[Rfam]
RNA sequence: UAUUUCCUUCAGGGCAGGGUGAAAUUCCCGACCGGCGGUACAGCCCGCGAGCCGCAGUUGCGGUUGAUCUGGUGAGAUUCCAGAGCCGACAGUAUAGUCUGGAUGGGAGAAGGAAAAA
Numbered sequence: 001u002a003u004u005u006c007c008u009u010c011a012g013g014g015c016a017g018g019g020u021g022a023a024a025u026u027c028c029c030g031a032c033c034g035g036c037g038g039u040a041c042a043g044c045c046c047g048c049g050a051g052c053c054g055c056a057g058u059u060g061c062g063g064u065u066g067a068u069c070u071g072g073u074g075a076g077a078u079u080c081c082a083g084a085g086c087c088g089a090c091a092g093u094a095u096a097g098u099c100u101g102g103a104u105g106g107g108a109g110a111a112g113g114a115a116a117a118a
Base pairs, nucleotide, nucleotide: 003116004115005114006113007112008111009110010109017029018028019027031098032097033088034087035048036047037046038045043086044085051064052063053062068084069083070082071081072080090101091100092099

FMN riboswitch aptamer (RFN element): a 118-nucleotide RNA sequence from Caloranaerobacter sp. TR13. Rfam links the family to the GO term FMN binding. The RFN element is a highly conserved domain that is found frequently in the 5'-untranslated regions of prokaryotic mRNAs that encode for flavin mononucleotide (FMN) biosynthesis and transport proteins. The base pairs follow the family's consensus structure, which is taken from published work.